[Rfam]
RNA sequence: CCCGCCGCAGUGCCUGACGGGAGGCGAAGCGCAAACGAGGACGUCGGCCAUUUUGUGUCGGCUUCCUGUGGGACGCGCUUGUU
Numbered sequence: 001c002c003c004g005c006c007g008c009a010g011u012g013c014c015u016g017a018c019g020g021g022a023g024g025c026g027a028a029g030c031g032c033a034a035a036c037g038a039g040g041a042c043g044u045c046g047g048c049c050a051u052u053u054u055g056u057g058u059c060g061g062c063u064u065c066c067u068g069u070g071g072g073a074c075g076c077g078c079u080u081g082u083u
Stems, first nucleotide, its partner, number of pairs: 002081001004079001006077003010074002014072002017069009028058001029056003036046003

Rfam assigns this 83-nucleotide RNA from Octodon degus to the family "mir-632 microRNA precursor family". The literature on the family includes a 2010 paper in BMC Res Notes by Brameier, "Genome-wide comparative analysis of microRNAs in three non-human primates". Pairs were carried over by alignment from the consensus structure, which was predicted with RNAalifold. Rfam links the family to the GO terms RISC complex and miRNA-mediated post-transcriptional gene silencing. Taxonomically the source falls in Octodon (Eukaryota, Glires, Hystricomorpha, Octodontidae).